Group II catalytic intron D1-D4-4: a 138-nucleotide sequence from Paenibacillus prosopidis.
A search with the family's covariance model found it, with a score of 97 bits.
Gene Ontology term of the family: Group II intron splicing.
Taxonomically the source falls in Paenibacillus (Bacteria, Bacilli, Caryophanales, Paenibacillaceae).
About the family: Group II introns are found in rRNA, tRNA and mRNA of organelles in fungi, plants and protists, and also in mRNA in bacteria.
On this family, see Bonen and Vogel, Trends Genet 2001: "The ins and outs of group II introns".
The base pairs follow the family's consensus structure.

[Rfam]
RNA sequence: UUACUGAUGCAAGUUCAGUCGGGGUAGGGGCCAAGCCGCCCCGUAGCUAGCAGGCAGACGUCGGAGAAAUCCGGCGGCUGAAGCCCUGUGAAAAAUCGCGCUCUGCGCGAUGAAGCAAAUCUGCAGGCCGUAAUGAAA
Numbered sequence: 001u002u003a004c005u006g007a008u009g010c011a012a013g014u015u016c017a018g019u020c021g022g023g024g025u026a027g028g029g030g031c032c033a034a035g036c037c038g039c040c041c042c043g044u045a046g047c048u049a050g051c052a053g054g055c056a057g058a059c060g061u062c063g064g065a066g067a068a069a070u071c072c073g074g075c076g077g078c079u080g081a082a083g084c085c086c087u088g089u090g091a092a093a094a095a096u097c098g099c100g101c102u103c104u105g106c107g108c109g110a111u112g113a114a115g116c117a118a119a120u121c122u123g124c125a126g127g128c129c130g131u132a133a134u135g136a137a138a
Stems, first nucleotide, its partner, number of pairs: 020043005050089005055080003059076002064071002095111006115131002